[Rfam]
RNA: Archaeal small subunit ribosomal RNA, nucleotides 508 to 866
Organism: Methanothermus fervidus
RNA sequence: GGCCUAAAGCGUCCGUAGCCGGUCCGGUAAGUCUCCGGUGAAAGCCCGCAGCUCAACUGCGGGAGUAGCCGGAGAUACUGCCGGACUUGGGGCCGGGAGAGGCCGGAGGUACCCCCGGGGUAGGGGUGAAAUCCUGUAAUCCCGGGGGGACCACCUGUGGCGAAGGCGUCCGGCUGGAACGGGCCCGACGGUGAGGGACGAAAGCCAGGGGAGCGAACCGGAUUAGAUACCCGGGUAGUCCUGGCCGUAAACGAUGCGGACUUGGUGUUGGGGCAACCUCGAGUUGCCCCAGUGCCGAAGGGAAGCCGUUAAGUCCGCCGCCUGGGGAGUACGGCCGCAAGGCUGAAACUUAAAGGAAU
Numbered sequence: 001g002g003c004c005u006a007a008a009g010c011g012u013c014c015g016u017a018g019c020c021g022g023u024c025c026g027g028u029a030a031g032u033c034u035c036c037g038g039u040g041a042a043a044g045c046c047c048g049c050a051g052c053u054c055a056a057c058u059g060c061g062g063g064a065g066u067a068g069c070c071g072g073a074g075a076u077a078c079u080g081c082c083g084g085a086c087u088u089g090g091g092g093c094c095g096g097g098a099g100a101g102g103c104c105g106g107a108g109g110u111a112c113c114c115c116c117g118g119g120g121u122a123g124g125g126g127u128g129a130a131a132u133c134c135u136g137u138a139a140u141c142c143c144g145g146g147g148g149g150a151c152c153a154c155c156u157g158u159g160g161c162g163a164a165g166g167c168g169u170c171c172g173g174c175u176g177g178a179a180c181g182g183g184c185c186c187g188a189c190g191g192u193g194a195g196g197g198a199c200g201a202a203a204g205c206c207a208g209g210g211g212a213g214c215g216a217a218c219c220g221g222a223u224u225a226g227a228u229a230c231c232c233g234g235g236u237a238g239u240c241c242u243g244g245c246c247g248u249a250a251a252c253g254a255u256g257c258g259g260a261c262u263u264g265g266u267g268u269u270g271g272g273g274c275a276a277c278c279u280c281g282a283g284u285u286g287c288c289c290c291a292g293u294g295c296c297g298a299a300g301g302g303a304a305g306c307c308g309u310u311a312a313g314u315c316c317g318c319c320g321c322c323u324g325g326g327g328a329g330u331a332c333g334g335c336c337g338c339a340a341g342g343c344u345g346a347a348a349c350u351u352a353a354a355g356g357a358a359u
Stems, first nucleotide, its partner, number of pairs: 001322003009319001011199004016193001018192003022086007030079002032075008045063007090186003093182003101175007108152002112148008123134003160167002204245006213239002218234004256318006264296014300307002324351003333344004